[Rfam]
RNA: mir-9261 microRNA precursor family
Organism: Pipistrellus kuhlii
RNA sequence: AGCAAUUGGUCCCGCAUCCCACGGCAUUUUAAAAAAGUCCCAAUUUUUUAAAACGCCGUGGGAUGCGGGACCAGUUGCUAA
Numbered sequence: 001a002g003c004a005a006u007u008g009g010u011c012c013c014g015c016a017u018c019c020c021a022c023g024g025c026a027u028u029u030u031a032a033a034a035a036a037g038u039c040c041c042a043a044u045u046u047u048u049u050a051a052a053a054c055g056c057c058g059u060g061g062g063a064u065g066c067g068g069g070a071c072c073a074g075u076u077g078c079u080a081a
Stems, first nucleotide, its partner, number of pairs: 001079025027053009